[Rfam]
RNA sequence: AUCUGGAGAGAGAUGCCUUCGGGGCAUCCACCGAAGGGGAACCGGUCUGAACAUCAGGCCGGUGAAGCUCUCAGGUAACAGGACAGAU
Numbered sequence: 001a002u003c004u005g006g007a008g009a010g011a012g013a014u015g016c017c018u019u020c021g022g023g024g025c026a027u028c029c030a031c032c033g034a035a036g037g038g039g040a041a042c043c044g045g046u047c048u049g050a051a052c053a054u055c056a057g058g059c060c061g062g063u064g065a066a067g068c069u070c071u072c073a074g075g076u077a078a079c080a081g082g083a084c085a086g087a088u
Stems, first nucleotide, its partner, number of pairs: 001088005012028004030076003033072002037070003042062009
Record summary
The record is an 88-nucleotide sequence from Pigmentiphaga litoralis, which matches "Glycine riboswitch aptamer" in Rfam. Lineage of the source: Bacteria > Pseudomonadota > Betaproteobacteria > Alcaligenaceae > Pigmentiphaga. Rfam links the family to the GO term glycine biosynthetic process.